[Rfam]
RNA sequence: CCUCUCGAAACAUGUCGCAGCAUGACCUGGCUGGAGAUCGAUAGUGAGGUAGAGCACUGAUUGGGGGAGCUGGGCGGGAAACUGCUCACCCCCCUGUCAAACUCCAAACUCCCUAUCAUCGUAGAAGGCUGGAAGUCCGGGCUACGGGGUAAGCUUGUAGUCCGUAAGGGAGACAACCCAGACCGAGGUUAAUGUCCCUCAAUGUAGGUUAAGUGUCAACACUGAAAGCGGUCCUAGGCCAAAGACAACUGGGAGGUGAGCUCAGAAGCAGCUACCCUUUAAAAAGUGCGUAACAGCUUACCAGUCAAGGUUUAGGGCACUGAAAAUGGACGGGGCUAAAACCUACUACAGAGACCUCGGGGCACCGCAAGGUGAUCCAGUAGAGAGGCGUUCUGCAUGGGUGGAAGUUGGGGCGUAAGUUCCAAUGGACCGUGUAGAAAUGAGAAU
Numbered sequence: 001c002c003u004c005u006c007g008a009a010a011c012a013u014g015u016c017g018c019a020g021c022a023u024g025a026c027c028u029g030g031c032u033g034g035a036g037a038u039c040g041a042u043a044g045u046g047a048g049g050u051a052g053a054g055c056a057c058u059g060a061u062u063g064g065g066g067g068a069g070c071u072g073g074g075c076g077g078g079a080a081a082c083u084g085c086u087c088a089c090c091c092c093c094c095u096g097u098c099a100a101a102c103u104c105c106a107a108a109c110u111c112c113c114u115a116u117c118a119u120c121g122u123a124g125a126a127g128g129c130u131g132g133a134a135g136u137c138c139g140g141g142c143u144a145c146g147g148g149g150u151a152a153g154c155u156u157g158u159a160g161u162c163c164g165u166a167a168g169g170g171a172g173a174c175a176a177c178c179c180a181g182a183c184c185g186a187g188g189u190u191a192a193u194g195u196c197c198c199u200c201a202a203u204g205u206a207g208g209u210u211a212a213g214u215g216u217c218a219a220c221a222c223u224g225a226a227a228g229c230g231g232u233c234c235u236a237g238g239c240c241a242a243a244g245a246c247a248a249c250u251g252g253g254a255g256g257u258g259a260g261c262u263c264a265g266a267a268g269c270a271g272c273u274a275c276c277c278u279u280u281a282a283a284a285a286g287u288g289c290g291u292a293a294c295a296g297c298u299u300a301c302c303a304g305u306c307a308a309g310g311u312u313u314a315g316g317g318c319a320c321u322g323a324a325a326a327u328g329g330a331c332g333g334g335g336c337u338a339a340a341a342c343c344u345a346c347u348a349c350a351g352a353g354a355c356c357u358c359g360g361g362g363c364a365c366c367g368c369a370a371g372g373u374g375a376u377c378c379a380g381u382a383g384a385g386a387g388g389c390g391u392u393c394u395g396c397a398u399g400g401g402u403g404g405a406a407g408u409u410g411g412g413g414c415g416u417a418a419g420u421u422c423c424a425a426u427g428g429a430c431c432g433u434g435u436a437g438a439a440a441u442g443a444g445a446a447u
Base pairs, nucleotide, nucleotide: 001388002387003386004385005384006383011024012023013022014021015020026135027132028131029130030129031128032127036120037119038118040117041116042115043114044113046111047110052105053103054102059098060097061096063094064093065092066091067090072087073086074085075084076083077082139163140162141161142160143159144158145157146156147155168179169178170177183360184359185358186357187356188355189354193350194349195348202347204346205345206344207343208342209341227321228320231318232317233316234315235314236313237312238311239310240309248305249304250303251302252301254278255277256276259273260272261271279283284299288297289296361378362377363374364373365372366371389442391439392438393437394436395435396434397433398432399431400430407426408425409424410423411422412421413420414419

Archaeal large subunit ribosomal RNA: a 447-nucleotide part of an RNA from Methanosphaerula palustris. Lineage of the source: Archaea > Methanobacteriota > Methanoregulaceae > Methanosphaerula > Methanosphaerula palustris. The family's consensus secondary structure is taken from published work.